Rfam assigns this 101-nucleotide sequence from Aeribacillus pallidus to the family "PyrR binding site". NCBI's taxonomy places the organism under Bacteria, Bacillota, Caryophanales, Bacillaceae, Aeribacillus. By type it is a cis-regulatory element.

RNA sequence: GCAUCCUUUAACUGCAGUCCCGUGAGGCUGAGAAGGAAUCGUAUGGCAAUAGGUGAGCUAUGCACAAAACCUCUCAUCCUCAGGAUGAGAGGUUUUUUUAA
Numbered sequence: 001g002c003a004u005c006c007u008u009u010a011a012c013u014g015c016a017g018u019c020c021c022g023u024g025a026g027g028c029u030g031a032g033a034a035g036g037a038a039u040c041g042u043a044u045g046g047c048a049a050u051a052g053g054u055g056a057g058c059u060a061u062g063c064a065c066a067a068a069a070c071c072u073c074u075c076a077u078c079c080u081c082a083g084g085a086u087g088a089g090a091g092g093u094u095u096u097u098u099u100a101a
Stems, first nucleotide, its partner, number of pairs: 004037006015030005042062005066096014